[Rfam]
RNA sequence: CUCGACAAAGGCAAACUCUCCGAAAGGGGAGGACGCAAAGCGCAUGGGCCUGAAACCGGACCGCCGAUGGCGGACCCGGAAUGGCAGCCACGUUUCCGAAA
Numbered sequence: 001c002u003c004g005a006c007a008a009a010g011g012c013a014a015a016c017u018c019u020c021c022g023a024a025a026g027g028g029g030a031g032g033a034c035g036c037a038a039a040g041c042g043c044a045u046g047g048g049c050c051u052g053a054a055a056c057c058g059g060a061c062c063g064c065c066g067a068u069g070g071c072g073g074a075c076c077c078g079g080a081a082u083g084g085c086a087g088c089c090a091c092g093u094u095u096c097c098g099a100a101a
Base pairs, nucleotide, nucleotide: 003098004097011036012035016031017030018029019028020027021026034087039094040093041092042091045090046089047088048085049084050083

c-di-GMP-I-GGC riboswitch aptamer: a 101-nucleotide RNA from Capsulimonas corticalis. A search with the family's covariance model found it, with a score of 60 bits. The organism belongs to Capsulimonas, within Bacteria. Gene Ontology term of the family: cyclic-di-GMP binding.